Nucleotides: 102
Stems, first nucleotide, its partner, number of pairs: 001023001003021004008017002033056003037052006063099005069093007077086003
Number, partner (000 for none) and nucleotide at each position: 001023c002000a003021g004020a005019u006018c007000g008017c009016c010000c011000a012000g013000a014000u015000g016009g017008g018006g019005a020004u021003c022000g023001g024000c025000c026000a027000u028000a029000a030000a031000g032000c033056g034055g035054g036000a037052c038051a039050u040049c041048g042047c043000u044000c045000c046000u047042g048041c049040g050039g051038u052037g053000c054035u055034c056033c057000c058000g059000a060000u061000g062000u063099c064098u065097g066096u067095a068000c069093c070092c071091a072090u073089g074088u075087u076000g077086c078085u079084c080000a081000a082000a083000g084079g085078a086077g087075g088074a089073u090072a091071u092070g093069g094000c095067u096066a097065u098064g099063g100000c101000a102000a